[Rfam]
RNA sequence: ACAGCAAGCCGGCCUGUCGCCUGUCUCCGGGCAGGAGGAAAGUCCGGACAACACAGAGCUCCGAGCUUCUUAACGGGAAGAUGGUCGUAAGGUCAUGCAGGUGUAACAGAAAAUAACCGCCUCAGGGUAAGGGUGAAAAGGUGGGGUAAGAGCCUACCGGUUUCGAUGGCAACAUUGGAAGCCGUACACCCCUCGGGUUGCAAGACCAUGUAUAUCGCGGUACCUUCGGUACGGGGUUGCUCGCUCCGGUUCCCUUUGUGGAUGCCGCGAAGGGUAGGUUGCUAAAGACUGCAGGUGACUGCUGUCUUAGAUCAAUGACAGGAUCCCUUCGGGGAUACAGAAUCCGGCUUACAGGCUUGCUGUUUUU
Numbered sequence: 001a002c003a004g005c006a007a008g009c010c011g012g013c014c015u016g017u018c019g020c021c022u023g024u025c026u027c028c029g030g031g032c033a034g035g036a037g038g039a040a041a042g043u044c045c046g047g048a049c050a051a052c053a054c055a056g057a058g059c060u061c062c063g064a065g066c067u068u069c070u071u072a073a074c075g076g077g078a079a080g081a082u083g084g085u086c087g088u089a090a091g092g093u094c095a096u097g098c099a100g101g102u103g104u105a106a107c108a109g110a111a112a113a114u115a116a117c118c119g120c121c122u123c124a125g126g127g128u129a130a131g132g133g134u135g136a137a138a139a140g141g142u143g144g145g146g147u148a149a150g151a152g153c154c155u156a157c158c159g160g161u162u163u164c165g166a167u168g169g170c171a172a173c174a175u176u177g178g179a180a181g182c183c184g185u186a187c188a189c190c191c192c193u194c195g196g197g198u199u200g201c202a203a204g205a206c207c208a209u210g211u212a213u214a215u216c217g218c219g220g221u222a223c224c225u226u227c228g229g230u231a232c233g234g235g236g237u238u239g240c241u242c243g244c245u246c247c248g249g250u251u252c253c254c255u256u257u258g259u260g261g262a263u264g265c266c267g268c269g270a271a272g273g274g275u276a277g278g279u280u281g282c283u284a285a286a287g288a289c290u291g292c293a294g295g296u297g298a299c300u301g302c303u304g305u306c307u308u309a310g311a312u313c314a315a316u317g318a319c320a321g322g323a324u325c326c327c328u329u330c331g332g333g334g335a336u337a338c339a340g341a342a343u344c345c346g347g348c349u350u351a352c353a354g355g356c357u358u359g360c361u362g363u364u365u366u367u
Stems, first nucleotide, its partner, number of pairs: 001363010011352001013322006020035006040350003044347005049200004056259001058257001061196005066080005083094004097190001101189005117132002119128003140158006160182001161180008204280004215270005250264001253261002287306003291302004
Dot-bracket structure: (((((((((((.((((((.((((((....))))))....[[[.[[[[[((((...[.[..((((((((((.....)))))..((((....))))..(...(((((...........(((((....)))..)).......((((((.......)))))).(((((((((....)))))))).)..)))))).)))))))))...((((.......(((((..............................(..((..].]))..).)))))......))))......(((.((((....)))).)))..........))))))....................]]]]]]]].).))))))))))....